[Rfam]
RNA sequence: GGGAAACGGACAGCGCGGCGCCGACCGCGAAACAACCGGA
Numbered sequence: 001g002g003g004a005a006a007c008g009g010a011c012a013g014c015g016c017g018g019c020g021c022c023g024a025c026c027g028c029g030a031a032a033c034a035a036c037c038g039g040a
Base pairs, nucleotide, nucleotide: 014029015028016027017026018025021039022038023037
RNA: Putative RNA-dependent RNA polymerase ribosomal frameshift site